[Rfam]
RNA sequence: AAAGUAUCCUAUGCGACGGCCAUGGAUUGGUUCAUAGCUGUCUGCUUUGCUUUC
Numbered sequence: 001a002a003a004g005u006a007u008c009c010u011a012u013g014c015g016a017c018g019g020c021c022a023u024g025g026a027u028u029g030g031u032u033c034a035u036a037g038c039u040g041u042c043u044g045c046u047u048u049g050c051u052u053u054c
Stems, first nucleotide, its partner, number of pairs: 002053002006051001008049001011046001013045002015042006022035005
This 54-nucleotide RNA from Canis lupus belongs to the Rfam family "Editing element of GABA-3 exon 9".
It is annotated as a cis-regulatory element.
It scores 71 bits against the family's covariance model.
Lineage of the source: Eukaryota > Bilateria > Eutheria > Boreoeutheria > Canis lupus.
The family's consensus secondary structure is taken from published work.
The family has 52 seed sequences and 4,208 matches in Rfam 15.1.